RNA sequence: AUAUACACUGAGUGGCCAUAUUAUUAUGCAUUCAGAAAGCAUAAUAAUGUGGCCACUCAGUGUAUAC
Number, nucleotide and partner (000 for none) at each position: 001a000002u000003a000004u064005a063006c062007a061008c060009u059010g058011a057012g056013u055014g054015g053016c052017c051018a000019u049020a048021u047022u046023a045024u044025u043026a042027u041028g040029c000030a000031u000032u000033c000034a000035g000036a000037a000038a000039g000040c028041a027042u026043a025044a024045u023046a022047a021048u020049g019050u000051g017052g016053c015054c014055a013056c012057u011058c010059a009060g008061u007062g006063u005064a004065u000066a000067c000

The family of this 67-nucleotide sequence from Pipistrellus kuhlii is "mir-9256 microRNA precursor family".
A search with the family's covariance model found it, with a score of 86 bits.